[Rfam]
RNA sequence: UCGUAUAUGAAUUUGCAUUCUCAUAUAUGCUUAGGGAUACGGCCUGAGUGUUUCUACCUGGAAACCGUAAAUUUCCGGACUAUGGGAAAUGCCUUUCUAUGG
Dot-bracket structure: .................((((((((...(((((((.......)))))))........(((((((.......)))))))..))))))))..............